[Rfam]
RNA sequence: UCCAUUUAGUGUUAGGUGAGGCUCCUGUACAAAUAUAAGCUAUCGUCCAAAAAUGUCGAGAGACACCAAUGGGUUAAACAGAGAUUGUCGAACUAAGGCUUUCUCCAGAUAGCUAAGUGGCGAAUGAAAAUUAGUCACUUGACGUUGUACAGUGCUAAAACUCAGACGAAGCAACUUAUGCCU
Number, nucleotide and partner (000 for none) at each position: 001u000002c000003c000004a000005u000006u178007u000008a176009g175010u174011g167012u166013u096014a000015g162016g161017u160018g000019a000020g156021g155022c154023u000024c000025c152026u151027g150028u149029a148030c147031a146032a145033a000034u000035a000036u000037a000038a000039g113040c112041u111042a110043u109044c000045g074046u073047c072048c071049a070050a000051a000052a000053a000054u065055g064056u063057c062058g000059a000060g000061a000062g057063a056064c055065a054066c000067c000068a000069a000070u049071g048072g047073g046074u045075u000076a000077a000078a000079c000080a000081g105082a104083g103084a102085u000086u000087g099088u098089c097090g000091a000092a000093c000094u000095a000096a013097g089098g088099c087100u000101u000102u084103c083104u082105c081106c000107a000108g000109a043110u042111a041112g040113c039114u000115a140116a139117g138118u137119g136120g135121c134122g000123a000124a000125u000126g000127a000128a000129a000130a000131u000132u000133a000134g121135u120136c119137a118138c117139u116140u115141g000142a000143c000144g000145u032146u031147g030148u029149a028150c027151a026152g025153u000154g022155c021156u020157a000158a000159a000160a017161c016162u015163c000164a000165g000166a012167c011168g000169a000170a000171g000172c000173a000174a010175c009176u008177u000178a006179u000180g000181c000182c000183u000

The record is a 183-nucleotide RNA from Aerococcus christensenii, which matches "M-box riboswitch aptamer (ykoK leader)" in Rfam. Rfam 15.1 lists 1,095 matches to the family in 932 species.